Shown here is a 65-nucleotide sequence from Bacteroidaceae bacterium HV4-6-C5C, a member of the family "Fluoride riboswitch aptamer (crcB RNA motif)". It scores 47 bits against the family's covariance model. Lineage of the source: Bacteria > Pseudomonadati > Bacteroidota > Bacteroidia > Bacteroidaceae.
RNA sequence: AUAUUGAUAGGGAAUGGAACUUCCCUGAAACCGCUUGAAACAGAGCUGAUAGUUCCUACUUUACU
Number, nucleotide and partner (000 for none) at each position: 001a000002u000003a000004u000005u000006g000007a000008u000009a000010g025011g024012g023013a022014a000015u000016g056017g055018a054019a053020c052021u051022u013023c012024c011025c010026u000027g000028a000029a000030a000031c000032c000033g046034c045035u044036u043037g000038a000039a000040a000041c000042a000043g036044a035045g034046c033047u000048g000049a000050u000051a021052g020053u019054u018055c017056c016057u000058a000059c000060u000061u000062u000063a000064c000065u000